[Rfam]
RNA sequence: CAGAAUGUUGGAAAAUUGUAUUUGUGGUUUCCAACUGCAUGGGAGAGCAACCUGGAGAGACUGACAGCCAGGUAGUACAAUACCUGCAGCUGCCACUCACCUUUACUAUAAUG
Numbered sequence: 001c002a003g004a005a006u007g008u009u010g011g012a013a014a015a016u017u018g019u020a021u022u023u024g025u026g027g028u029u030u031c032c033a034a035c036u037g038c039a040u041g042g043g044a045g046a047g048c049a050a051c052c053u054g055g056a057g058a059g060a061c062u063g064a065c066a067g068c069c070a071g072g073u074a075g076u077a078c079a080a081u082a083c084c085u086g087c088a089g090c091u092g093c094c095a096c097u098c099a100c101c102u103u104u105a106c107u108a109u110a111a112u113g
Stems, first nucleotide, its partner, number of pairs: 001024001004023002009018002054106001056104004067093002069086004
RNA: Small nucleolar RNA SNORA44